[Rfam]
RNA sequence: CAGAACCAGGGUGAUGGCGUUCCACCUUUCCCAACCGCUCCAUUCCGGAGCUGAUGACGCCUGAUGUAAC
Numbered sequence: 001c002a003g004a005a006c007c008a009g010g011g012u013g014a015u016g017g018c019g020u021u022c023c024a025c026c027u028u029u030c031c032c033a034a035c036c037g038c039u040c041c042a043u044u045c046c047g048g049a050g051c052u053g054a055u056g057a058c059g060c061c062u063g064a065u066g067u068a069a070c
Base pairs, nucleotide, nucleotide: 010026011025012024013023016061017060018059019058020057021056037051038050039049040048